[Rfam]
RNA sequence: GGGUUAAUGCUAAUCGUGAUAGGGGUUCUGUUAUAAAAGAGACACCUACCAUGCUAGCAUUAGCCU
Numbered sequence: 001g002g003g004u005u006a007a008u009g010c011u012a013a014u015c016g017u018g019a020u021a022g023g024g025g026u027u028c029u030g031u032u033a034u035a036a037a038a039g040a041g042a043c044a045c046c047u048a049c050c051a052u053g054c055u056a057g058c059a060u061u062a063g064c065c066u
Base pairs, nucleotide, nucleotide: 004063005062006061007060008059009058010057011056012055014053020048021047022046023045025043026042027041
RNA: mir-155 microRNA precursor family